The record is a 70-nucleotide RNA from Anabarilius grahami, which matches "Small nucleolar RNA SNORD2" in Rfam. The literature on the family includes a 2004 paper in Gene by Zhou et al., "Identification of a novel box C/D snoRNA from mouse nucleolar cDNA library".
[Rfam]
RNA sequence: GUAUGAAAUGAUGUUUUUCAUCUUUCGGGACUGACCUCUCAUGGAGACAUUUUUAAACUACUGAUCAUAC
Numbered sequence: 001g002u003a004u005g006a007a008a009u010g011a012u013g014u015u016u017u018u019c020a021u022c023u024u025u026c027g028g029g030a031c032u033g034a035c036c037u038c039u040c041a042u043g044g045a046g047a048c049a050u051u052u053u054u055a056a057a058c059u060a061c062u063g064a065u066c067a068u069a070c
Stems, first nucleotide, its partner, number of pairs: 001070006
Background:
Rfam links the family to the GO terms nucleolus and RNA processing. It scores 64 bits against the family's covariance model. The family's RNA type in Rfam is C/D-box small nucleolar RNA. The source organism's lineage runs through Eukaryota, Teleostei, Cypriniphysae, Xenocyprididae and Anabarilius. Pairs were carried over by alignment from the consensus structure, which was predicted with WAR.